RNA sequence: CAGCAGACGGUGGGAGAAGCGGCCCAACCUGAACAGGUCGGAGCCGCUGCCGAAGGCGCAAACGCCCGGAAUCGCUCAGGCCCCAUUACCGCCGUCGGCUC
Numbered sequence: 001c002a003g004c005a006g007a008c009g010g011u012g013g014g015a016g017a018a019g020c021g022g023c024c025c026a027a028c029c030u031g032a033a034c035a036g037g038u039c040g041g042a043g044c045c046g047c048u049g050c051c052g053a054a055g056g057c058g059c060a061a062a063c064g065c066c067c068g069g070a071a072u073c074g075c076u077c078a079g080g081c082c083c084c085a086u087u088a089c090c091g092c093c094g095u096c097g098g099c100u101c
Stems, first nucleotide, its partner, number of pairs: 006096008019047004049081003052077002056075003063068001